[Rfam]
RNA sequence: ACGGACAGCCGGGGCGCUAGCGGUGCCCUGUACCAGCAAUCCGCUAUAGCUGGGGUCAUAUCCUGCCUCGGGUCUUUAGACUGUAAAGCAGCCCCUGGUAAGUGGCGUUGACGUUUGGGUCUCGCGCAACAGGAACUUGUGAACCGUGUCAGGUCAGGAAUGGAGCAGCACUAAGCAAGAGCUCUUGUGUGCCGUGAGGGAGCCUGAGCCGAGUUAACUGCCAGGGUAACGUUUAUGGUCGGGAUUCAAAGCAGGAUGUCCAU
Dot-bracket structure: (.((((.(((((((((((...))))))))...(((((...........)))))))).....(((((.(.((((((...(((((((((......((((((..(((((......((((((((((((((((.(((((.(((((.....((((....(((....)))....))))...)))))...)))))))...))))))...))))))))...))).)).))))))......))))))))).)))))).).)))))..)))).)

About this RNA:
Bacterial large signal recognition particle RNA: a 263-nucleotide sequence from Eubacterium plexicaudatum. Pairs were carried over by alignment from the consensus structure, which is taken from published work. Its Rfam clan is "SRP clan". NCBI's taxonomy places the organism under Bacteria, Bacillota, Eubacteriales, Eubacteriaceae, Eubacterium plexicaudatum. Rfam links the family to the GO terms SRP-dependent cotranslational protein targeting to membrane, signal sequence recognition and signal recognition particle, plasma membrane targeting. Rfam classes the family as a non-coding RNA gene. For this family Rfam cites "SRPDB: Signal Recognition Particle Database" (Rosenblad et al., Nucleic Acids Res, 2003).